RNA sequence: CCGCAAGGCUUCCAGCAUGGUGGGGCCUGCUGUGGCUCCAUCCAUUCCUGCAGCGCUUGCCAGAGUAACCCUGGGGUGGUUUGAGGCCUCUUUCUGUCUCUCAGGGGGGAGGUUAUAGAAACCCCAUACACUC
Numbered sequence: 001c002c003g004c005a006a007g008g009c010u011u012c013c014a015g016c017a018u019g020g021u022g023g024g025g026c027c028u029g030c031u032g033u034g035g036c037u038c039c040a041u042c043c044a045u046u047c048c049u050g051c052a053g054c055g056c057u058u059g060c061c062a063g064a065g066u067a068a069c070c071c072u073g074g075g076g077u078g079g080u081u082u083g084a085g086g087c088c089u090c091u092u093u094c095u096g097u098c099u100c101u102c103a104g105g106g107g108g109g110a111g112g113u114u115a116u117a118g119a120a121a122c123c124c125c126a127u128a129c130a131c132u133c
Stems, first nucleotide, its partner, number of pairs: 003060005009055001018044003023038005072126005087112006094105002

Shown here is a 133-nucleotide RNA from Coturnix japonica, a member of the family "Small nucleolar RNA SNORA9". It is annotated as an H/ACA-box small nucleolar RNA. ACA9 is a member of the H/ACA class of snoRNA that guide the sites of modification of uridines to pseudouridines. Taxonomically the source falls in Coturnix (Eukaryota, Eumetazoa, Archosauria, Theropoda). The match comes from Rfam's covariance-model search (115 bits). The family has 36 seed sequences and 1,202 matches in Rfam 15.1.